This 265-nucleotide sequence from Clostridium sp. CAG:632 belongs to the Rfam family "Bacterial large signal recognition particle RNA". The source organism's lineage runs through Bacteria, Bacillati, Clostridia, Eubacteriales and Clostridium. Rfam classes the family as a non-coding RNA gene. Rfam links the family to the GO terms signal recognition particle, plasma membrane targeting and SRP-dependent cotranslational protein targeting to membrane, signal sequence recognition.
RNA sequence: CUGUGCAGCCGGGGAGUUAGCGGUGCCCUAUACCUGCAAUCCGCUAUAGCAGGGGUGAUGGACUGGUUCGGGUCGCUUUUUUCAUAAAGCUGCCCUUCGUAAGUGGCGUUGAAGUCUGGGUCUUGCGCAAUGGAUGCCCACGAACCGUGUCAGGUCGGGAACGGAGCAGCACUAAGAGGGAUUUUCCAUGUGCCGCGAGGGUGCCUGGGCUGAGUUAACUGCGGAGGUAACGUUUAUGAAAAUCUUCACAACCCAGUCCGCACAG
Numbered sequence: 001c002u003g004u005g006c007a008g009c010c011g012g013g014g015a016g017u018u019a020g021c022g023g024u025g026c027c028c029u030a031u032a033c034c035u036g037c038a039a040u041c042c043g044c045u046a047u048a049g050c051a052g053g054g055g056u057g058a059u060g061g062a063c064u065g066g067u068u069c070g071g072g073u074c075g076c077u078u079u080u081u082u083c084a085u086a087a088a089g090c091u092g093c094c095c096u097u098c099g100u101a102a103g104u105g106g107c108g109u110u111g112a113a114g115u116c117u118g119g120g121u122c123u124u125g126c127g128c129a130a131u132g133g134a135u136g137c138c139c140a141c142g143a144a145c146c147g148u149g150u151c152a153g154g155u156c157g158g159g160a161a162c163g164g165a166g167c168a169g170c171a172c173u174a175a176g177a178g179g180g181a182u183u184u185u186c187c188a189u190g191u192g193c194c195g196c197g198a199g200g201g202u203g204c205c206u207g208g209g210c211u212g213a214g215u216u217a218a219c220u221g222c223g224g225a226g227g228u229a230a231c232g233u234u235u236a237u238g239a240a241a242a243u244c245u246u247c248a249c250a251a252c253c254c255a256g257u258c259c260g261c262a263c264a265g
Stems, first nucleotide, its partner, number of pairs: 001265006008056003011029004016024003033053005062257005068251001071247002075243001079242010091229002095226006103219002105216003113211009122199006128190002131188004137180003141176001147172004155164003
About the family: The signal recognition particle (SRP) is a universally conserved ribonucleoprotein involved in the co-translational targeting of proteins to membranes.